RNA sequence: CAAAUAAAAGUGGGGAGCUGGAGAAAUCUGGCUGAGAGGAAGCUGUAUUGCUUCGACCCGUAUAACCUGAACUGGAUAAUGCCAGCGGAGGGAGAAUAUUGUCUUAAUAUU
Numbered sequence: 001c002a003a004a005u006a007a008a009a010g011u012g013g014g015g016a017g018c019u020g021g022a023g024a025a026a027u028c029u030g031g032c033u034g035a036g037a038g039g040a041a042g043c044u045g046u047a048u049u050g051c052u053u054c055g056a057c058c059c060g061u062a063u064a065a066c067c068u069g070a071a072c073u074g075g076a077u078a079a080u081g082c083c084a085g086c087g088g089a090g091g092g093a094g095a096a097u098a099u100u101g102u103c104u105u106a107a108u109a110u111u
Stems, first nucleotide, its partner, number of pairs: 006099001008097001011060004017032005039054005066091003072085004
Shown here is a 111-nucleotide RNA from Paramaledivibacter caminithermalis, a member of the family "TPP riboswitch aptamer (THI element)". NCBI's taxonomy places the organism under Bacteria, Bacillati, Caminicellaceae, Paramaledivibacter, Paramaledivibacter caminithermalis. The match comes from Rfam's covariance-model search (64 bits).